Overview: Vault RNA: a 97-nucleotide RNA sequence from Clytia hemisphaerica. The base pairs follow the family's consensus structure, which is taken from published work. This family of RNAs are found as part of the enigmatic vault ribonucleoprotein complex. The complex consists of a major vault protein (MVP), two minor vault proteins (VPARP and TEP1), and several small untranslated RNA molecules. It has been suggested that the vault complex is involved in drug resistance. Rfam classes the family as a non-coding RNA gene.
RNA sequence: GUGCAGGCUUAGUCUAAAGGUUCCUUCGUUCUUUUUAAAUAUUUCCACUCUCUGAGUGUGAGUUCGACCCCGACCUUUGACGCAGUCCUGUAUUUUU
Numbered sequence: 001g002u003g004c005a006g007g008c009u010u011a012g013u014c015u016a017a018a019g020g021u022u023c024c025u026u027c028g029u030u031c032u033u034u035u036u037a038a039a040u041a042u043u044u045c046c047a048c049u050c051u052c053u054g055a056g057u058g059u060g061a062g063u064u065c066g067a068c069c070c071c072g073a074c075c076u077u078u079g080a081c082g083c084a085g086u087c088c089u090g091u092a093u094u095u096u097u
Stems, first nucleotide, its partner, number of pairs: 002092006012081003017077004026067003